[Rfam]
RNA sequence: UUCCCGAACGCGACGCGCUGCGUCGUAUUCUACCUCCCUGUUGGACUGGCCCGGCUUUCGCCGGGCCUUUUUU
Dot-bracket structure: .......(.(((((((...))))))).)...................((((((((....))))))))......

The record is a 73-nucleotide RNA sequence from Kangsaoukella pontilimi, which matches "Singlet oxygen resistance RNA X" in Rfam. A reference for the family is Peng et al. (2016), "Regulation of a polyamine transporter by the conserved 3' UTR-derived sRNA SorX confers resistance to singlet oxygen and organic hydroperoxides in Rhodobacter sphaeroides", RNA Biol. It is annotated as a small RNA. Rfam 15.1 lists 528 matches to the family in 356 species. Rfam describes the family as follows. SorX (RSs2461)like SorY is a singlet oxygen induced sRNA that counteracts oxidative stress by targeting mRNA for a transporter in Rhodobacter. It also has an impact on resistance against organic hydroperoxides. It targets SD sequence of potA mRNA via an aSD sequence. The aSD sequence and some neighbouring nucleotides are identical to the one of SorY (targets takP mRNA).